The family of this 104-nucleotide RNA sequence from Iocasia frigidifontis is "TPP riboswitch aptamer (THI element)". The match comes from Rfam's covariance-model search (58 bits). Rfam links the family to the GO term thiamine pyrophosphate binding.
[Rfam]
RNA sequence: UAUACUUAAAUGGGGAGCCUAACUGGAGGGCUGAGAGGAUACUCAUAUCGACCCACUGACCUGAUCCUGGUAAUGCAGGCGAAGGGAAAAAUCUUUACUGCUCC
Numbered sequence: 001u002a003u004a005c006u007u008a009a010a011u012g013g014g015g016a017g018c019c020u021a022a023c024u025g026g027a028g029g030g031c032u033g034a035g036a037g038g039a040u041a042c043u044c045a046u047a048u049c050g051a052c053c054c055a056c057u058g059a060c061c062u063g064a065u066c067c068u069g070g071u072a073a074u075g076c077a078g079g080c081g082a083a084g085g086g087a088a089a090a091a092u093c094u095u096u097a098c099u100g101c102u103c104c
Base pairs, nucleotide, nucleotide: 007091011055012054013053014052017031018030019029020028038049039048040047041046060085061084062083066079067078068077069076

Record summary
Vitamin B(1) in its active form thiamin pyrophosphate (TPP) is an essential coenzyme that is synthesised by coupling of pyrimidine and thiazole moieties in bacteria.